[Rfam]
This 66-nucleotide RNA sequence from Herbaspirillum sp. Sphag64 belongs to the Rfam family "Betaproteobacteria toxic small RNA".
RNA sequence: UGUCUCCUCCACCCUCCUCCUUUGGUGUGGAUUUAAGCCCGAAACGUCUGUUUCGGGUUUUUUUUG
Numbered sequence: 001u002g003u004c005u006c007c008u009c010c011a012c013c014c015u016c017c018u019c020c021u022u023u024g025g026u027g028u029g030g031a032u033u034u035a036a037g038c039c040c041g042a043a044a045c046g047u048c049u050g051u052u053u054c055g056g057g058u059u060u061u062u063u064u065u066g
Stems, first nucleotide, its partner, number of pairs: 008031005013025002036059008
About this RNA
NCBI's taxonomy places the organism under Bacteria, Pseudomonadota, Betaproteobacteria, Burkholderiales, Herbaspirillum. Rfam 15.1 lists 951 matches to the family in 508 species. The match comes from Rfam's covariance-model search (63 bits). Rfam describes the family as follows. Overexpression in amino aid rich medium attenuates growth, suggesting role in repressing amino acid intake and metabolism. For this family Rfam cites "A vast collection of microbial genes that are toxic to bacteria" (Kimelman et al., Genome Res, 2012). The base pairs follow the family's consensus structure, which was predicted with WAR.